[Rfam]
RNA sequence: GGACGAUGACGAUGAUAUAUUUAAGGUCUCGUUCGUCGUAAUGGCUCUUUUUUAAAAGGGCCUUGCCGACCAUCCUGUUAUAUCACCACCCAUAUUCUGAGUCC
Numbered sequence: 001g002g003a004c005g006a007u008g009a010c011g012a013u014g015a016u017a018u019a020u021u022u023a024a025g026g027u028c029u030c031g032u033u034c035g036u037c038g039u040a041a042u043g044g045c046u047c048u049u050u051u052u053u054a055a056a057a058g059g060g061c062c063u064u065g066c067c068g069a070c071c072a073u074c075c076u077g078u079u080a081u082a083u084c085a086c087c088a089c090c091c092a093u094a095u096u097c098u099g100a101g102u103c104c
Base pairs, nucleotide, nucleotide: 001104002103003102004101051059
Shown here is a 104-nucleotide sequence from Aquilegia coerulea, a member of the family "Small nucleolar RNA Z43".
By type it is a C/D-box small nucleolar RNA.
A search with the family's covariance model found it, with a score of 91 bits.
For this family Rfam cites "The high diversity of snoRNAs in plants: identification and comparative study of 120 snoRNA genes from Oryza sativa" (Chen et al., Nucleic Acids Res, 2003).
Rfam links the family to the GO terms RNA processing and nucleolus.